Small nucleolar RNA SNORD115: a 78-nucleotide sequence from Suricata suricatta. Its family is annotated with RNA processing and nucleolus in the Gene Ontology. For this family Rfam cites "Identification of brain-specific and imprinted small nucleolar RNA genes exhibiting an unusual genomic organization" (Cavaille et al., Proc Natl Acad Sci U S A, 2000). NCBI's taxonomy places the organism under Eukaryota, Sarcopterygii, Mammalia, Eutheria, Suricata. By type it is a C/D-box small nucleolar RNA.

RNA sequence: GUGUUAAUGAUGAGAACUCAUAAUGUAUAGAAGAGACAAUAACCUAAAAGUCAUGUUAGAUAGGUUUACACUGAAGCC
Numbered sequence: 001g002u003g004u005u006a007a008u009g010a011u012g013a014g015a016a017c018u019c020a021u022a023a024u025g026u027a028u029a030g031a032a033g034a035g036a037c038a039a040u041a042a043c044c045u046a047a048a049a050g051u052c053a054u055g056u057u058a059g060a061u062a063g064g065u066u067u068a069c070a071c072u073g074a075a076g077c078c
Stems, first nucleotide, its partner, number of pairs: 003077002005073002008070002